[Rfam]
RNA: chrB-b RNA
Organism: Caenimonas sedimenti
RNA sequence: UCGGGAACAACAGCCUCCCGGUCCUUCAAGGCAGAUGGUGUCCCAUCCAAGCGCUGG
Numbered sequence: 001u002c003g004g005g006a007a008c009a010a011c012a013g014c015c016u017c018c019c020g021g022u023c024c025u026u027c028a029a030g031g032c033a034g035a036u037g038g039u040g041u042c043c044c045a046u047c048c049a050a051g052c053g054c055u056g057g
Stems, first nucleotide, its partner, number of pairs: 001021006011056004034047005